[Rfam]
RNA sequence: GGCUGUGACACGGGGUGCCGCGCACUGCGGCUGAGAUGACACCCGUCGAACCUGAUCCAGUUAGCACUGGCGAAGGGAUCGUCCGGCUGGUGCGGC
Numbered sequence: 001g002g003c004u005g006u007g008a009c010a011c012g013g014g015g016u017g018c019c020g021c022g023c024a025c026u027g028c029g030g031c032u033g034a035g036a037u038g039a040c041a042c043c044c045g046u047c048g049a050a051c052c053u054g055a056u057c058c059a060g061u062u063a064g065c066a067c068u069g070g071c072g073a074a075g076g077g078a079u080c081g082u083c084c085g086g087c088u089g090g091u092g093c094g095g096c
Stems, first nucleotide, its partner, number of pairs: 007083003011045004016039001017031005051076003057070004
A member of the RNA family "TPP riboswitch aptamer (THI element)" from Nesterenkonia xinjiangensis, 96 nucleotides long. Taxonomically the source falls in Nesterenkonia (Bacteria, Actinomycetota, Actinomycetes, Micrococcales). A search with the family's covariance model found it, with a score of 65 bits.